MIR530 microRNA precursor family: a 150-nucleotide RNA from Turnera subulata. NCBI's taxonomy places the organism under Eukaryota, Streptophyta, Embryophyta, Mesangiospermae, Turnera. Gene Ontology terms of the family: RISC complex and miRNA-mediated post-transcriptional gene silencing. Rfam 15.1 lists 119 matches to the family in 78 species. On this family, see Lu et al., Plant J 2008: "Stress-responsive microRNAs in Populus". The base pairs follow the family's consensus structure, which was predicted with WAR.

RNA sequence: UCCAAUCUGUUGUCUUUAUCUGCAUUUGCACCUGCACCUUACUACUUGUUGUUGCCUCUGAAAGCCCUGAAGUUAACUUCAGGCUCGUGAAAGGAAAUGGGAACAAGCAAAAGAGGUGCAGGUGCAGGUGCAGGUGAAGGCCAUGUUGGU
Numbered sequence: 001u002c003c004a005a006u007c008u009g010u011u012g013u014c015u016u017u018a019u020c021u022g023c024a025u026u027u028g029c030a031c032c033u034g035c036a037c038c039u040u041a042c043u044a045c046u047u048g049u050u051g052u053u054g055c056c057u058c059u060g061a062a063a064g065c066c067c068u069g070a071a072g073u074u075a076a077c078u079u080c081a082g083g084c085u086c087g088u089g090a091a092a093g094g095a096a097a098u099g100g101g102a103a104c105a106a107g108c109a110a111a112a113g114a115g116g117u118g119c120a121g122g123u124g125c126a127g128g129u130g131c132a133g134g135u136g137a138a139g140g141c142c143a144u145g146u147u148g149g150u
Base pairs, nucleotide, nucleotide: 002149003148004147005146006145008143009142012141013140015138016137017136018135019134020133021132022131023130024129025128026127027126028125029124030123031122032121033120034119035118036117037116038115039114